Rfam assigns this 72-nucleotide RNA sequence from Onychostoma macrolepis to the family "Small nucleolar RNA R38". It is annotated as a C/D-box small nucleolar RNA. The match comes from Rfam's covariance-model search (59 bits). About the family: snoR38 is a C/D box small nucleolar RNA conserved across yeast, human, Arabidopsis and rice. It is encoded in the intron of elongation factor-1 gamma in both pombe and cerevisiae. snoR38 guides the methylation of 2'-O-ribose sites in 28S rRNA.
RNA sequence: UCAAGCCUGUGAUGAGAGAAGUUAUCCCUGUCUGAAAAGCAUGUGUGGAGUUUUUGGUAACCUGAGGCUUGU
Numbered sequence: 001u002c003a004a005g006c007c008u009g010u011g012a013u014g015a016g017a018g019a020a021g022u023u024a025u026c027c028c029u030g031u032c033u034g035a036a037a038a039g040c041a042u043g044u045g046u047g048g049a050g051u052u053u054u055u056g057g058u059a060a061c062c063u064g065a066g067g068c069u070u071g072u
Stems, first nucleotide, its partner, number of pairs: 002071006
Dot-bracket structure: .((((((..........................................................)))))).